The family of this 133-nucleotide RNA from Aquarana catesbeiana is "Small nucleolar RNA ACA64". The family has 30 seed sequences and 9,537 matches in Rfam 15.1. A search with the family's covariance model found it, with a score of 53 bits. The literature on the family includes a 2006 paper in RNA by Schattner et al., "A computational screen for mammalian pseudouridylation guide H/ACA RNAs". By type it is an H/ACA-box small nucleolar RNA.
[Rfam]
RNA sequence: CACGGCAGAAAAUUGCCACUGGUCUAUUCUGUAGCCAAUUGGUAAGAUCACCGUGCCUAUAUAAAUAUUAGCGUAUCAAAGCUCAUUGCCCAUAACCUUGUGUGUGCGUAAUGAGACCCGUACUCUAACAUAA
Numbered sequence: 001c002a003c004g005g006c007a008g009a010a011a012a013u014u015g016c017c018a019c020u021g022g023u024c025u026a027u028u029c030u031g032u033a034g035c036c037a038a039u040u041g042g043u044a045a046g047a048u049c050a051c052c053g054u055g056c057c058u059a060u061a062u063a064a065a066u067a068u069u070a071g072c073g074u075a076u077c078a079a080a081g082c083u084c085a086u087u088g089c090c091c092a093u094a095a096c097c098u099u100g101u102g103u104g105u106g107c108g109u110a111a112u113g114a115g116a117c118c119c120g121u122a123c124u125c126u127a128a129c130a131u132a133a
Stems, first nucleotide, its partner, number of pairs: 005054002008051001010048001013045004021036003070126001073123004083114005091104003